[Rfam]
RNA sequence: UCGCAAUCCGCCAACCGGUCAAGCCGUGUCGCGGAAGGUUUCUCAACCAGCCAAUGCCCUGGGGUACCCGGGAGUGAGGUGAGCG
Numbered sequence: 001u002c003g004c005a006a007u008c009c010g011c012c013a014a015c016c017g018g019u020c021a022a023g024c025c026g027u028g029u030c031g032c033g034g035a036a037g038g039u040u041u042c043u044c045a046a047c048c049a050g051c052c053a054a055u056g057c058c059c060u061g062g063g064g065u066a067c068c069c070g071g072g073a074g075u076g077a078g079g080u081g082a083g084c085g
Base pairs, nucleotide, nucleotide: 002085003084004083007035008034009033010032011031016026017025018024019023037048038047039046040045050080051079052078057074058072059071060070061069062068063067
RNA: SucA RNA motif